RNA: small nucleolar RNA snoR134
Organism: Adiantum capillus-veneris
RNA sequence: AUGCACAGUUAGUAACCCCGGGCUUCCCUUAUCUGACCAAGAAAGGAAGGUUCGGCCCUGUGAUCGUGCUACAGAAUGGGCUCCGUGUUGCAACCAUUUUUCCGUUUCCUCAUAGAAAUGGUUGUGUCAAAGAGGGCUCUACAUUU
Numbered sequence: 001a002u003g004c005a006c007a008g009u010u011a012g013u014a015a016c017c018c019c020g021g022g023c024u025u026c027c028c029u030u031a032u033c034u035g036a037c038c039a040a041g042a043a044a045g046g047a048a049g050g051u052u053c054g055g056c057c058c059u060g061u062g063a064u065c066g067u068g069c070u071a072c073a074g075a076a077u078g079g080g081c082u083c084c085g086u087g088u089u090g091c092a093a094c095c096a097u098u099u100u101u102c103c104g105u106u107u108c109c110u111c112a113u114a115g116a117a118a119u120g121g122u123u124g125u126g127u128c129a130a131a132g133a134g135g136g137c138u139c140u141a142c143a144u145u146u
Stems, first nucleotide, its partner, number of pairs: 003069004008064001010063001020058005027050003078139006086129002089126006097117003